The family of this 239-nucleotide RNA sequence is "tp2".
RNA sequence: GGUAUUCCUUAUCUGUCUAAUACGUUGAUUAUCUGGAACCUGUCCCAUUGCGCUCUUGCCCGUCAUACUUCGGCUUGCCUCAUUGUUGGCUUCACGUCCUCACCCCAGUCACUUACUAAAGUAAGCUCCAGGGGAUUCCAACGCUUGCCGCUGCGAUGCAAGGCGAAUUAUUUAGGGCAACUGAAUAAAAGAACGCAAUAAGACAGGUUCUGUGUUUAGUUGCCGCGCUCUAAAGUUUG
Numbered sequence: 001g002g003u004a005u006u007c008c009u010u011a012u013c014u015g016u017c018u019a020a021u022a023c024g025u026u027g028a029u030u031a032u033c034u035g036g037a038a039c040c041u042g043u044c045c046c047a048u049u050g051c052g053c054u055c056u057u058g059c060c061c062g063u064c065a066u067a068c069u070u071c072g073g074c075u076u077g078c079c080u081c082a083u084u085g086u087u088g089g090c091u092u093c094a095c096g097u098c099c100u101c102a103c104c105c106c107a108g109u110c111a112c113u114u115a116c117u118a119a120a121g122u123a124a125g126c127u128c129c130a131g132g133g134g135a136u137u138c139c140a141a142c143g144c145u146u147g148c149c150g151c152u153g154c155g156a157u158g159c160a161a162g163g164c165g166a167a168u169u170a171u172u173u174a175g176g177g178c179a180a181c182u183g184a185a186u187a188a189a190a191g192a193a194c195g196c197a198a199u200a201a202g203a204c205a206g207g208u209u210c211u212g213u214g215u216u217u218a219g220u221u222g223c224c225g226c227g228c229u230c231u232a233a234a235g236u237u238u239g
Stems, first nucleotide, its partner, number of pairs: 001224004022215004035211010047199005054192004
Dot-bracket structure: ((((.................((((.........((((((((((..(((((..((((...................................................................................................................................))))..)))))..)))))))))))))).....))))...............
The base pairs follow the family's consensus structure, which was predicted with RNAalifold.
It scores 88 bits against the family's covariance model.
The literature on the family includes a 2001 paper in Curr Biol by Rivas et al., "Computational identification of noncoding RNAs in E. coli by comparative genomics".